A member of the RNA family "Small nucleolar RNA SNORD10" from Conger conger, 141 nucleotides long.
It scores 77 bits against the family's covariance model.
A reference for the family is Huttenhofer et al. (2001), "RNomics: an experimental approach that identifies 201 candidates for novel, small, non-messenger RNAs in mouse", EMBO J.
The family's RNA type in Rfam is C/D-box small nucleolar RNA.
RNA sequence: GUUUUAUGAUGAAAUCCAUGCGUGUCAACUGAUCCCAGAAUCCCCUGAUGCUCUGCUCCCCCUGCCGGCGUUCUGUUGGCAGGUGUGGACGGGGUGUCAGUGCUCUGGGGCCAUGAUCAUUUCUUAACCUUGGCUGAGAAC
Numbered sequence: 001g002u003u004u005u006a007u008g009a010u011g012a013a014a015u016c017c018a019u020g021c022g023u024g025u026c027a028a029c030u031g032a033u034c035c036c037a038g039a040a041u042c043c044c045c046u047g048a049u050g051c052u053c054u055g056c057u058c059c060c061c062c063u064g065c066c067g068g069c070g071u072u073c074u075g076u077u078g079g080c081a082g083g084u085g086u087g088g089a090c091g092g093g094g095u096g097u098c099a100g101u102g103c104u105c106u107g108g109g110g111c112c113a114u115g116a117u118c119a120u121u122u123c124u125u126a127a128c129c130u131u132g133g134c135u136g137a138g139a140a141c
Stems, first nucleotide, its partner, number of pairs: 001141004043102001045100007